Shown here is a 134-nucleotide RNA sequence from Vescimonas fastidiosa, a member of the family "Ribosomal protein L10 leader". From the family's description: This family is a putative r-protein leader autoregulatory structure found in B. subtilis and other low-GC Gram-positive bacteria. It is located in the 5' untranslated regions of mRNAs encoding ribosomal proteins L10 and L12 (rplJ-rplL). A Rho-independent transcription terminator structure that is probably involved in regulation is included at the 3' end. Rfam links the family to the GO term regulation of gene expression.

[Rfam]
RNA sequence: UAUAAUAUAUGAUGCGUUCCAAAGACAGCAGGGGGACUUGUCCGUAAUUCCUGCCGAGGAUGGCGAAUCAAUUUUUGAUUGCUUUACCCCGUCCUUGUGUCCUUGGGCACAGGGACGGGUUUUUCCUGUUUUGA
Numbered sequence: 001u002a003u004a005a006u007a008u009a010u011g012a013u014g015c016g017u018u019c020c021a022a023a024g025a026c027a028g029c030a031g032g033g034g035g036a037c038u039u040g041u042c043c044g045u046a047a048u049u050c051c052u053g054c055c056g057a058g059g060a061u062g063g064c065g066a067a068u069c070a071a072u073u074u075u076u077g078a079u080u081g082c083u084u085u086a087c088c089c090c091g092u093c094c095u096u097g098u099g100u101c102c103u104u105g106g107g108c109a110c111a112g113g114g115a116c117g118g119g120u121u122u123u124u125c126c127u128g129u130u131u132u133g134a
Stems, first nucleotide, its partner, number of pairs: 028054006034043003088119014